Shown here is an 82-nucleotide RNA from Laticauda laticaudata, a member of the family "Mammalian CPEB3 ribozyme".
A reference for the family is Salehi-Ashtiani et al. (2006), "A genomewide search for ribozymes reveals an HDV-like sequence in the human CPEB3 gene", Science.
The base pairs follow the family's consensus structure, which is taken from published work.
It scores 49 bits against the family's covariance model.
Rfam links the family to the GO term RNA nuclease activity.
RNA sequence: ACACCUCAACAGGGGGCCAAGACAAGGAGCGUUUCACAUCGCCAGGUCCCUGUCAGGUAUCUGUUUACCUGCGAAUCCUUUC
Numbered sequence: 001a002c003a004c005c006u007c008a009a010c011a012g013g014g015g016g017c018c019a020a021g022a023c024a025a026g027g028a029g030c031g032u033u034u035c036a037c038a039u040c041g042c043c044a045g046g047u048c049c050c051u052g053u054c055a056g057g058u059a060u061c062u063g064u065u066u067a068c069c070u071g072c073g074a075a076u077c078c079u080u081u082c
Base pairs, nucleotide, nucleotide: 013050014049015048016047017046018045024080025079026078027077028076029042030041031040054071055070056069057068058067059066